[Rfam]
RNA sequence: AAAAAAGAGGUUCAUAGCAAAACAACCCUCUAUAAAAAACUAUGGGAAU
Numbered sequence: 001a002a003a004a005a006a007g008a009g010g011u012u013c014a015u016a017g018c019a020a021a022a023c024a025a026c027c028c029u030c031u032a033u034a035a036a037a038a039a040c041u042a043u044g045g046g047a048a049u
Stems, first nucleotide, its partner, number of pairs: 006031005015042002
Rfam assigns this 49-nucleotide RNA sequence from Candidatus Kurthia intestinigallinarum to the family "PreQ1 (pre queuosine) riboswitch aptamer". The pairing is the family consensus, mapped onto this sequence. This family is a bacterial riboswitch that binds to the metabolite preQ1, an intermediate in the biosynthesis of the modified nucleoside queuosine from GTP. One example of this riboswitch is located in the leader of the Bacillus subtilis ykvJKLM (queCDEF) operon which encodes four genes necessary for queuosine production. A reference for the family is Flemmich et al. (2021), "A natural riboswitch scaffold with self-methylation activity", Nat Commun. A search with the family's covariance model found it, with a score of 41 bits.